RNA sequence: GCGUGCCGAUGAUGAUGCACAAGCACCGGUGAAUUCUGGAUGAUUGCGCUUGCGCACCAUCGCUGCGCACAGCUCUCGUGAUAUCCACUGCGUAAUACUCUGAGGCACAC
Numbered sequence: 001g002c003g004u005g006c007c008g009a010u011g012a013u014g015a016u017g018c019a020c021a022a023g024c025a026c027c028g029g030u031g032a033a034u035u036c037u038g039g040a041u042g043a044u045u046g047c048g049c050u051u052g053c054g055c056a057c058c059a060u061c062g063c064u065g066c067g068c069a070c071a072g073c074u075c076u077c078g079u080g081a082u083a084u085c086c087a088c089u090g091c092g093u094a095a096u097a098c099u100c101u102g103a104g105g106c107a108c109a110c
Base pairs, nucleotide, nucleotide: 003108004107005106006105007104